[Rfam]
RNA sequence: UUUCCAUUCAGUAGUCCCGGACGAAUUUAAAACAUAACGUACGGUUUGGACAUAAUGGAGAAAUAGAACAUUACUCUUUUUGCAGCGAAGCUGAAAACUAUUUUCGUUUUGCUAGCCAUAAGUGUAAAACAAUU
Numbered sequence: 001u002u003u004c005c006a007u008u009c010a011g012u013a014g015u016c017c018c019g020g021a022c023g024a025a026u027u028u029a030a031a032a033c034a035u036a037a038c039g040u041a042c043g044g045u046u047u048g049g050a051c052a053u054a055a056u057g058g059a060g061a062a063a064u065a066g067a068a069c070a071u072u073a074c075u076c077u078u079u080u081u082g083c084a085g086c087g088a089a090g091c092u093g094a095a096a097a098c099u100a101u102u103u104u105c106g107u108u109u110u111g112c113u114a115g116c117c118a119u120a121a122g123u124g125u126a127a128a129a130c131a132a133u134u
Base pairs, nucleotide, nucleotide: 001061002060003059004058005057006056007055008054011051012050014047017044018043019042021040022039023038027037028036029035071127072126073125074124076122077121078120082116083115084113085112086111087110088109089108090107091106093105094104095103096102
Rfam assigns this 134-nucleotide RNA from Caenorhabditis remanei to the family "Caenorhabditis sRNA ceN93". For this family Rfam cites "Systematic identification of non-coding RNA 2,2,7-trimethylguanosine cap structures in Caenorhabditis elegans" (Jia et al., BMC Mol Biol, 2007). The base pairs follow the family's consensus structure, which was predicted with WAR. Rfam 15.1 lists 10 matches to the family in 10 species.